[Rfam]
RNA sequence: CAUUCGGUUAUUAGAAAUAAAGAGAAGUAGAUCUGUUUUAUAUUCGAUAAGUACCAAUGCACAAUGGGG
Numbered sequence: 001c002a003u004u005c006g007g008u009u010a011u012u013a014g015a016a017a018u019a020a021a022g023a024g025a026a027g028u029a030g031a032u033c034u035g036u037u038u039u040a041u042a043u044u045c046g047a048u049a050a051g052u053a054c055c056a057a058u059g060c061a062c063a064a065u066g067g068g069g
Stems, first nucleotide, its partner, number of pairs: 003022002007018003043068003051060003